[Rfam]
RNA sequence: GAGCAAACUGGUAGCUGCAAGCCAGGGCGGUAGCCUU
Numbered sequence: 001g002a003g004c005a006a007a008c009u010g011g012u013a014g015c016u017g018c019a020a021g022c023c024a025g026g027g028c029g030g031u032a033g034c035c036u037u
Base pairs, nucleotide, nucleotide: 009024010023011022012021
The family of this 37-nucleotide RNA from Erwinia mallotivora is "JUMPstart RNA". A search with the family's covariance model found it, with a score of 44 bits. The source organism's lineage runs through Bacteria, Pseudomonadati, Pseudomonadota, Gammaproteobacteria and Erwinia. The family's RNA type in Rfam is cis-regulatory element.